[Rfam]
RNA sequence: AUGGCUCUGUCGAUCCGGAGGGUUGCGUGUCACGCGACUUAUUGAGGUAGGUGAGGUGGGGCCGU
Number, nucleotide and partner (000 for none) at each position: 001a065002u064003g063004g062005c061006u060007c059008u058009g057010u056011c055012g000013a000014u000015c051016c050017g000018g000019a000020g040021g039022g038023u037024u036025g035026c034027g033028u032029g000030u000031c000032a028033c027034g026035c025036g024037a023038c022039u021040u020041a000042u000043u000044g000045a000046g000047g000048u000049a000050g016051g015052u000053g000054a000055g011056g010057u009058g008059g007060g006061g005062c004063c003064g002065u001
RNA: DUF3800-VIII RNA
Organism: Polycladomyces abyssicola